Shown here is a 99-nucleotide sequence from Zingiber officinale, a member of the family "mir-172 microRNA precursor family". mir-172 has been experimentally verified in Arabidopsis thaliana. This family is thought to target mRNAs coding for APETALA2-like transcription factors. It scores 86 bits against the family's covariance model. The organism belongs to Zingiber, within Eukaryota.

[Rfam]
RNA sequence: AUGUUUGCGGGUGUGGCAUCAUCAAGAUUCACAUGGACUGCAAGCGGCUGUUUUGAUCAUGUGAGAUGAGAAUCUUGAUGAUGCUGCAUCGGCAAACAA
Numbered sequence: 001a002u003g004u005u006u007g008c009g010g011g012u013g014u015g016g017c018a019u020c021a022u023c024a025a026g027a028u029u030c031a032c033a034u035g036g037a038c039u040g041c042a043a044g045c046g047g048c049u050g051u052u053u054u055g056a057u058c059a060u061g062u063g064a065g066a067u068g069a070g071a072a073u074c075u076u077g078a079u080g081a082u083g084c085u086g087c088a089u090c091g092g093c094a095a096a097c098a099a
Stems, first nucleotide, its partner, number of pairs: 010090021032068002